[Rfam]
Source information
Shown here is a 316-nucleotide RNA from Coniochaeta pulveracea, a member of the family "A. fumigatus sRNA Afu_309". For this family Rfam cites "Small ncRNA transcriptome analysis from Aspergillus fumigatus suggests a novel mechanism for regulation of protein synthesis" (Jochl et al., Nucleic Acids Res, 2008). The organism belongs to Coniochaeta, within Eukaryota.
RNA sequence: CUCUUUUCCUCUCCAACGGAUCUGGUCCUCAGCGUUCCCCUGCCUAAACCUCCCUCGGGGGGAUUCAGGUUCAGGGUUGAGUGCUGCAGGCAGCUCGAUACCUUCAAGGAGCACAUCUUUAUCCCAUGGUGUAAAUUUCCAAUCGUCAGAUCCCAGAACAACCGGACCCCGGAGGAAGCUUCUCUCGUUCCGCGGUAAAACGCGUCGUAGCGAGGUUGCACGUACUCUGGGUGCUUUCUGGGGAAGUAAUAUUCCACCCCUUUCACCGAGGUCGUCGACCUAUGAGGUUGAGGAAAACCAUUCCUGCUCUACAAUC
Numbered sequence: 001c002u003c004u005u006u007u008c009c010u011c012u013c014c015a016a017c018g019g020a021u022c023u024g025g026u027c028c029u030c031a032g033c034g035u036u037c038c039c040c041u042g043c044c045u046a047a048a049c050c051u052c053c054c055u056c057g058g059g060g061g062g063a064u065u066c067a068g069g070u071u072c073a074g075g076g077u078u079g080a081g082u083g084c085u086g087c088a089g090g091c092a093g094c095u096c097g098a099u100a101c102c103u104u105c106a107a108g109g110a111g112c113a114c115a116u117c118u119u120u121a122u123c124c125c126a127u128g129g130u131g132u133a134a135a136u137u138u139c140c141a142a143u144c145g146u147c148a149g150a151u152c153c154c155a156g157a158a159c160a161a162c163c164g165g166a167c168c169c170c171g172g173a174g175g176a177a178g179c180u181u182c183u184c185u186c187g188u189u190c191c192g193c194g195g196u197a198a199a200a201c202g203c204g205u206c207g208u209a210g211c212g213a214g215g216u217u218g219c220a221c222g223u224a225c226u227c228u229g230g231g232u233g234c235u236u237u238c239u240g241g242g243g244a245a246g247u248a249a250u251a252u253u254c255c256a257c258c259c260c261u262u263u264c265a266c267c268g269a270g271g272u273c274g275u276c277g278a279c280c281u282a283u284g285a286g287g288u289u290g291a292g293g294a295a296a297a298c299c300a301u302u303c304c305u306g307c308u309c310u311a312c313a314a315u316c
Base pairs, nucleotide, nucleotide: 018153019152020151021150022149023148024147025146027090028089030086031085032084034082035081036080037079038076039075040074041073042072044069045067047065048064050062052059053058099145103141108132110130112128164238165237166236168231169230170229171228172227181215182214183213184212187211188210189209191207192206193204194203243309244308246304248302249301250300259293260292261291262290265288266287267286270280271279272278273277